[Rfam]
RNA sequence: UCCCCAGUUCUCCUGGCGCGUCCUAGAGCCGCAGGUGGUCCUCCCUCGCCUGCCGGUCGUGCGCCCGCCUUGCCUCGCUGCUUUCCCUUUGCGCAGCGAGGCAUUUU
Numbered sequence: 001u002c003c004c005c006a007g008u009u010c011u012c013c014u015g016g017c018g019c020g021u022c023c024u025a026g027a028g029c030c031g032c033a034g035g036u037g038g039u040c041c042u043c044c045c046u047c048g049c050c051u052g053c054c055g056g057u058c059g060u061g062c063g064c065c066c067g068c069c070u071u072g073c074c075u076c077g078c079u080g081c082u083u084u085c086c087c088u089u090u091g092c093g094c095a096g097c098g099a100g101g102c103a104u105u106u107u
Stems, first nucleotide, its partner, number of pairs: 015065007031053007072102009083091001
The record is a 107-nucleotide RNA from Neorhizobium alkalisoli, which matches "Rhizobiales sRNA Atu_C7" in Rfam.
The literature on the family includes a 2012 paper in RNA Biol by Wilms et al., "Deep sequencing uncovers numerous small RNAs on all four replicons of the plant pathogen Agrobacterium tumefaciens".
Taxonomically the source falls in Neorhizobium (Bacteria, Pseudomonadati, Alphaproteobacteria, Rhizobiaceae).